[Rfam]
RNA: RAGATH-16 RNA
RNA sequence: CCUUUCCUAUAAAAGGGCGUCGCCGGGUGCAUGGGAAUUAAGCCCAUGGUGCGGAUAGUGAAAACCCCCGGAG
Numbered sequence: 001c002c003u004u005u006c007c008u009a010u011a012a013a014a015g016g017g018c019g020u021c022g023c024c025g026g027g028u029g030c031a032u033g034g035g036a037a038u039u040a041a042g043c044c045c046a047u048g049g050u051g052c053g054g055a056u057a058g059u060g061a062a063a064a065c066c067c068c069c070g071g072a073g
Stems, first nucleotide, its partner, number of pairs: 001017005023071004030048006